[Rfam]
This 86-nucleotide RNA from Triticum urartu belongs to the Rfam family "mir-395 microRNA precursor family". The base pairs follow the family's consensus structure, which was predicted with PFOLD. A search with the family's covariance model found it, with a score of 71 bits. Rfam describes the family as follows. mir-395 was identified in both Arabidopsis thaliana and Oryza sativa computationally and was later experimentally verified. mir-395 is thought to target mRNAs coding for ATP sulphurylases. The mature sequence is excised from the 3' arm of the hairpin. A reference for the family is Jones-Rhoades and Bartel (2004), "Computational Identification of Plant MicroRNAs and Their Targets, Including a Stress-Induced miRNA", Mol Cell.
RNA sequence: GUUUUACCGGGAGUUUCCUGCAAGCACUUCACAAGGCAUUAUUCCAAAUGCCACCGUGAAGUGUUUGGGGGAACUCUUGGUGCCAC
Number, nucleotide and partner (000 for none) at each position: 001g000002u000003u000004u000005u082006a081007c080008c079009g078010g000011g076012a075013g074014u073015u072016u071017c070018c069019u068020g000021c000022a066023a065024g064025c063026a062027c061028u060029u059030c058031a057032c056033a000034a000035g000036g052037c000038a000039u000040u000041a000042u000043u000044c000045c000046a000047a000048a000049u000050g000051c000052c036053a000054c000055c000056g032057u031058g030059a029060a028061g027062u026063g025064u024065u023066u022067g000068g019069g018070g017071g016072a015073a014074c013075u012076c011077u000078u009079g008080g007081u006082g005083c000084c000085a000086c000